[Rfam]
Description: This 69-nucleotide RNA from Streptosporangium subroseum belongs to the Rfam family "ASpks TB sRNA". A search with the family's covariance model found it, with a score of 71 bits. The family has 77 seed sequences and 9,052 matches in Rfam 15.1. The family's consensus secondary structure is taken from published work.

RNA sequence: CUUGAUCGAGCCCAGCCAGAGCGGUGUCUCCCGAUCCUGACCGUACGUGGCCAGCAACGCCUGAGCCUC
Numbered sequence: 001c002u003u004g005a006u007c008g009a010g011c012c013c014a015g016c017c018a019g020a021g022c023g024g025u026g027u028c029u030c031c032c033g034a035u036c037c038u039g040a041c042c043g044u045a046c047g048u049g050g051c052c053a054g055c056a057a058c059g060c061c062u063g064a065g066c067c068u069c
Stems, first nucleotide, its partner, number of pairs: 015025003028065003032059002037054003041050003

The family's RNA type in Rfam is antisense RNA.